[Rfam]
RNA sequence: AAAAGUUGAAUGUCGGCAGCAAACUGUGAUAACUCUGUAGGCAUUACUUCGUUAAAGCGAAAUUACCAAACACAAAUGAAAGCCCUUCUACGAGUUCUAAGCCUGGUCGUCAUUAGCGUCGUCGUGAUUAUUGUCACGCCGUGCGGGGCUACGCUCGGAGGAAGAAAGGCUUAAAAAUCAAGCCUGAUUUCGAAAGAACCCCCGCACCGAAAGGUCCGGGGGUUUUUUUUCGGCAAGGUAUUAAUGACAGAGGAUUAGGAAAUGAACAGUAGAAUAAAAUGCUGCAUUUCCCAGCCAGAG
Numbered sequence: 001a002a003a004a005g006u007u008g009a010a011u012g013u014c015g016g017c018a019g020c021a022a023a024c025u026g027u028g029a030u031a032a033c034u035c036u037g038u039a040g041g042c043a044u045u046a047c048u049u050c051g052u053u054a055a056a057g058c059g060a061a062a063u064u065a066c067c068a069a070a071c072a073c074a075a076a077u078g079a080a081a082g083c084c085c086u087u088c089u090a091c092g093a094g095u096u097c098u099a100a101g102c103c104u105g106g107u108c109g110u111c112a113u114u115a116g117c118g119u120c121g122u123c124g125u126g127a128u129u130a131u132u133g134u135c136a137c138g139c140c141g142u143g144c145g146g147g148g149c150u151a152c153g154c155u156c157g158g159a160g161g162a163a164g165a166a167a168g169g170c171u172u173a174a175a176a177a178u179c180a181a182g183c184c185u186g187a188u189u190u191c192g193a194a195a196g197a198a199c200c201c202c203c204g205c206a207c208c209g210a211a212a213g214g215u216c217c218g219g220g221g222g223u224u225u226u227u228u229u230u231c232g233g234c235a236a237g238g239u240a241u242u243a244a245u246g247a248c249a250g251a252g253g254a255u256u257a258g259g260a261a262a263u264g265a266a267c268a269g270u271a272g273a274a275u276a277a278a279a280u281g282c283u284g285c286a287u288u289u290c291c292c293a294g295c296c297a298g299a300g
Stems, first nucleotide, its partner, number of pairs: 005033004010027002012024001015020001037073002040071001045065002048062001050057001084253003089246002092242002096238003101234003105231002108118003120141002123138002126135003142159001144157004161191003168185002171182002193228012206215003254287002256284003260280001262275002